The record is a 59-nucleotide RNA from Boudabousia liubingyangii, which matches "msiK RNA" in Rfam. The family's RNA type in Rfam is cis-regulatory element. The match comes from Rfam's covariance-model search (68 bits). The family has 120 seed sequences and 1,374 matches in Rfam 15.1.
RNA sequence: AACUGACACCUUCCACUACGGAUCGUCCGGCACGUACCUGCCGGUGAAGGGAAAAAUUA
Numbered sequence: 001a002a003c004u005g006a007c008a009c010c011u012u013c014c015a016c017u018a019c020g021g022a023u024c025g026u027c028c029g030g031c032a033c034g035u036a037c038c039u040g041c042c043g044g045u046g047a048a049g050g051g052a053a054a055a056a057u058u059a
Base pairs, nucleotide, nucleotide: 009051010050011049012048014046015045027044028043029042030041031040032039